[Rfam]
RNA sequence: CCCACAACUGUGUCUUAUGGCUUUCUAUUCCUAUGUGAGUUCUCUCUAACUCGUCAUGUAGGGUUUAAAGCCAUUGGAUACACGGUGGA
Numbered sequence: 001c002c003c004a005c006a007a008c009u010g011u012g013u014c015u016u017a018u019g020g021c022u023u024u025c026u027a028u029u030c031c032u033a034u035g036u037g038a039g040u041u042c043u044c045u046c047u048a049a050c051u052c053g054u055c056a057u058g059u060a061g062g063g064u065u066u067a068a069a070g071c072c073a074u075u076g077g078a079u080a081c082a083c084g085g086u087g088g089a
Base pairs, nucleotide, nucleotide: 002088003087004086005085009082010081011080012079013078014077015076017074018073019072020071021070022069023068024067027065029063030062031061032060033059034058035057036056037055038054
A member of the RNA family "mir-135 microRNA precursor family" from Pleuronectes platessa, 89 nucleotides long.
The base pairs follow the family's consensus structure, which was predicted with PFOLD.
The organism belongs to Pleuronectes, within Eukaryota.
Rfam links the family to the GO terms gene silencing by miRNA and RISC complex.